[Rfam]
Nucleotides: 180
Stems, first nucleotide, its partner, number of pairs: 006175001008173004016083005023076002032068008087117004091111006098104001118144002121141008146165007
Number, partner (000 for none) and nucleotide at each position: 001000a002000g003000u004000g005000a006175g007000u008173a009172u010171g011170g012000a013000g014000g015000c016083g017082c018081a019080a020079a021000a022000a023076c024075c025000a026000u027000a028000a029000g030000u031000a032068a033067a034066u035065a036064a037063u038062u039061g040000g041000a042000a043000g044000a045000g046000a047000a048000u049000g050000a051000g052000c053000u054000c055000u056000g057000u058000c059000g060000a061039u062038a063037a064036u065035u066034a067033u068032u069000g070000a071000a072000a073000g074000g075024g076023g077000a078000a079020u080019u081018u082017g083016c084000c085000g086000a087117a088116g089115c090114u091111g092110u093109a094108a095107g096106a097000g098104u099000c100000u101000c102000a103000u104098g105000a106096u107095c108094u109093u110092a111091c112000u113000u114090a115089g116088c117087u118144g119143g120000g121141u122140c123139u124138g125137u126136a127135u128134u129000g130000a131000a132000u133000a134128a135127g136126u137125g138124c139123a140122g141121g142000a143119c144118u145000g146165u147164c148163a149162u150161a151160u152159a153000g154000g155000a156000a157000a158000c159152u160151a161150u162149a163148u164147g165146g166000a167000g168000g169000g170011c171010u172009a173008u174000c175006u176000u177000a178000c179000g180000c

Rfam assigns this 180-nucleotide RNA sequence from Pseudogracilibacillus auburnensis to the family "Lysine riboswitch aptamer".
Taxonomically the source falls in Pseudogracilibacillus (Bacteria, Bacillati, Bacillota, Bacillaceae).
It scores 119 bits against the family's covariance model.